SAM riboswitch aptamer (S box leader): a 104-nucleotide RNA sequence from Aminomonas paucivorans. About the family: The SAM riboswitch is found upstream of a number of genes which code for proteins involved in methionine or cysteine biosynthesis in Gram-positive bacteria. The family's consensus secondary structure is taken from published work.

[Rfam]
RNA sequence: CUCUUAUCCAGAGUGGCUGAGGGACUGGCCCGAUGAAGCCCGGCAACCUGCCCGCAAGGGGCGUGGUGCCAACACCUGCGGUCGAGACGACCGAUUGAUAAGAG
Numbered sequence: 001c002u003c004u005u006a007u008c009c010a011g012a013g014u015g016g017c018u019g020a021g022g023g024a025c026u027g028g029c030c031c032g033a034u035g036a037a038g039c040c041c042g043g044c045a046a047c048c049u050g051c052c053c054g055c056a057a058g059g060g061g062c063g064u065g066g067u068g069c070c071a072a073c074a075c076c077u078g079c080g081g082u083c084g085a086g087a088c089g090a091c092c093g094a095u096u097g098a099u100a101a102g103a104g
Stems, first nucleotide, its partner, number of pairs: 001104008013041001015040003021031003025078001027076002042070004047066002049063004074096001079093006